Shown here is a 130-nucleotide RNA from Caenorhabditis briggsae, a member of the family "Caenorhabditis snoRNA ceN67". Pairs were carried over by alignment from the consensus structure, which was predicted with RNAalifold.
RNA sequence: AAUCCCAUUAUCUUUCCAUCAGCCGAUUUUGAAGUCACUGAUGGCUUAGAAUGGGAGAUAUUGUCAGGUCGAAUCUGAUAAAUGAUUCAUAAGCCCUAGUUUGUUGCAUCAUUUCAUUCUACCGACAAAC
Numbered sequence: 001a002a003u004c005c006c007a008u009u010a011u012c013u014u015u016c017c018a019u020c021a022g023c024c025g026a027u028u029u030u031g032a033a034g035u036c037a038c039u040g041a042u043g044g045c046u047u048a049g050a051a052u053g054g055g056a057g058a059u060a061u062u063g064u065c066a067g068g069u070c071g072a073a074u075c076u077g078a079u080a081a082a083u084g085a086u087u088c089a090u091a092a093g094c095c096c097u098a099g100u101u102u103g104u105u106g107c108a109u110c111a112u113u114u115c116a117u118u119c120u121a122c123c124g125a126c127a128a129a130c
Stems, first nucleotide, its partner, number of pairs: 003056007016044007025036003067123002071119001076116003083111004088106002091104001093102001
The family's RNA type in Rfam is H/ACA-box small nucleolar RNA. Rfam links the family to the GO terms RNA processing and nucleolus.